Notes
A member of the RNA family "Small nucleolar RNA SNORD34" from Eulacestoma nigropectus, 73 nucleotides long. The match comes from Rfam's covariance-model search (48 bits). Rfam classes the family as a C/D-box small nucleolar RNA. The base pairs follow the family's consensus structure, which was predicted with PFOLD. Gene Ontology terms of the family: RNA processing and nucleolus.
RNA sequence: CAGUGUCGAUGAUGUCACUUUUACCUACAUUGUUUGACUGUUCCUGAGAAAAACCCAAAAUCCUGAGACACCG
Numbered sequence: 001c002a003g004u005g006u007c008g009a010u011g012a013u014g015u016c017a018c019u020u021u022u023a024c025c026u027a028c029a030u031u032g033u034u035u036g037a038c039u040g041u042u043c044c045u046g047a048g049a050a051a052a053a054c055c056c057a058a059a060a061u062c063c064u065g066a067g068a069c070a071c072c073g
Stems, first nucleotide, its partner, number of pairs: 001073001004070004